Record summary: This 81-nucleotide sequence from Oryzias latipes belongs to the Rfam family "Small nucleolar RNA MBII-202". The family's consensus secondary structure was predicted with PFOLD.
RNA sequence: UGUGAUGACACAUCUCCGGAAUCUCUGUAGUUCUUUGAUGAAAAACUUGAACCUUUUUCUGAUGACUGCUCUGAAAAUCUC
Numbered sequence: 001u002g003u004g005a006u007g008a009c010a011c012a013u014c015u016c017c018g019g020a021a022u023c024u025c026u027g028u029a030g031u032u033c034u035u036u037g038a039u040g041a042a043a044a045a046c047u048u049g050a051a052c053c054u055u056u057u058u059c060u061g062a063u064g065a066c067u068g069c070u071c072u073g074a075a076a077a078u079c080u081c
Stems, first nucleotide, its partner, number of pairs: 002081001004079003
NCBI's taxonomy places the organism under Eukaryota, Vertebrata, Acanthomorphata, Adrianichthyidae, Oryzias. A reference for the family is Huttenhofer et al. (2001), "RNomics: an experimental approach that identifies 201 candidates for novel, small, non-messenger RNAs in mouse", EMBO J.